About this RNA: A member of the RNA family "MIR5291 microRNA precursor family" from Trifolium medium, 65 nucleotides long.

RNA sequence: CAUGGAUCCAAUCCAAUCCAUUAACUAAUUUUUUUUACUUAUGGAUGGAUUGGAUGGAUCCAUUA
Numbered sequence: 001c002a003u004g005g006a007u008c009c010a011a012u013c014c015a016a017u018c019c020a021u022u023a024a025c026u027a028a029u030u031u032u033u034u035u036u037a038c039u040u041a042u043g044g045a046u047g048g049a050u051u052g053g054a055u056g057g058a059u060c061c062a063u064u065a
Stems, first nucleotide, its partner, number of pairs: 004061005011055012027040002030037001
The organism belongs to Trifolium, within Eukaryota.